About this RNA:
The family of this 120-nucleotide RNA from Glycine max is "MIR1520 microRNA precursor family". Lineage of the source: Eukaryota > rosids > fabids > Glycine > Glycine subgen. Soja. The base pairs follow the family's consensus structure, which was predicted with RNAalifold.
RNA sequence: UUCUUAUUAGAUGAUGACUAUCACAUGUCAUGUUCUGAUUGACCUAUGACAACAAAAAUGCAUUUCAUCUUCCAUGAAGUUGACAUCCAAUCAUAACAUGACACGUGACAGUCAUCAUCC
Numbered sequence: 001u002u003c004u005u006a007u008u009a010g011a012u013g014a015u016g017a018c019u020a021u022c023a024c025a026u027g028u029c030a031u032g033u034u035c036u037g038a039u040u041g042a043c044c045u046a047u048g049a050c051a052a053c054a055a056a057a058a059u060g061c062a063u064u065u066c067a068u069c070u071u072c073c074a075u076g077a078a079g080u081u082g083a084c085a086u087c088c089a090a091u092c093a094u095a096a097c098a099u100g101a102c103a104c105g106u107g108a109c110a111g112u113c114a115u116c117a118u119c120c
Stems, first nucleotide, its partner, number of pairs: 021108003026103001029100003033096002036093001038091003